[Rfam]
RNA sequence: GAUUCCGAGGAGCGCUGCAAGGUGCCGCAAGGCCCCCAGGCUCGGAACCCGCCAGGCCGCCACGGCCGCGGGCAUUUUUCAACGGCGCUCACCUGAA
Numbered sequence: 001g002a003u004u005c006c007g008a009g010g011a012g013c014g015c016u017g018c019a020a021g022g023u024g025c026c027g028c029a030a031g032g033c034c035c036c037c038a039g040g041c042u043c044g045g046a047a048c049c050c051g052c053c054a055g056g057c058c059g060c061c062a063c064g065g066c067c068g069c070g071g072g073c074a075u076u077u078u079u080c081a082a083c084g085g086c087g088c089u090c091a092c093c094u095g096a097a
Base pairs, nucleotide, nucleotide: 003047004046005045006044007043008042021035022034024033025032026031